Rfam assigns this 71-nucleotide RNA sequence from Sagittarius serpentarius to the family "mir-124 microRNA precursor family". It scores 79 bits against the family's covariance model. A reference for the family is Lai et al. (2003), "Computational identification of Drosophila microRNA genes", Genome Biol. Taxonomically the source falls in Sagittarius (Eukaryota, Archelosauria, Saurischia, Theropoda). Pairs were carried over by alignment from the consensus structure, which was predicted with PFOLD.
[Rfam]
Nucleotides: 071
Base pairs, nucleotide, nucleotide: 003069004068005067006066009063010062011061012060013059014058015057016056018054019053020052023049024048025047026046027045028044029043030042
Number, partner (000 for none) and nucleotide at each position: 001000a002000g003069c004068c005067u006066u007000u008000c009063g010062u011061g012060u013059u014058c015057a016056c017000c018054g019053u020052g021000g022000a023049c024048c025047u026046u027045g028044a029043u030042u031000u032000a033000a034000u035000g036000u037000c038000g039000c040000a041000c042030a043029a044028u045027u046026a047025a048024g049023g050000c051000a052020c053019g054018c055000g056016g057015u058014g059013a060012a061011u062010g063009c064000c065000a066006a067005a068004g069003g070000g071000g